This 61-nucleotide RNA sequence from Pristionchus pacificus belongs to the Rfam family "mir-8364 microRNA precursor family".

RNA sequence: UCUUCAUUUUGCACACUAUCUCACCGGUCUGAGAGGCGAGAGAGUGUGGGAAAUGAAGAUA
Numbered sequence: 001u002c003u004u005c006a007u008u009u010u011g012c013a014c015a016c017u018a019u020c021u022c023a024c025c026g027g028u029c030u031g032a033g034a035g036g037c038g039a040g041a042g043a044g045u046g047u048g049g050g051a052a053a054u055g056a057a058g059a060u061a
Base pairs, nucleotide, nucleotide: 001059002058003057004056005055006054007053010050012048013047014046015045016044017043019041020040021039022038
Pairs were carried over by alignment from the consensus structure, which was predicted with RNAalifold.